[Rfam]
RNA: Small nucleolar RNA snoR124
RNA sequence: UACCAAUGAUGGAUUUCAAAAUAAUCAUCAGAUCUGAUAUACAUGAUUACAAUCUUGACGCUGAGGUA
Numbered sequence: 001u002a003c004c005a006a007u008g009a010u011g012g013a014u015u016u017c018a019a020a021a022u023a024a025u026c027a028u029c030a031g032a033u034c035u036g037a038u039a040u041a042c043a044u045g046a047u048u049a050c051a052a053u054c055u056u057g058a059c060g061c062u063g064a065g066g067u068a
Stems, first nucleotide, its partner, number of pairs: 001068004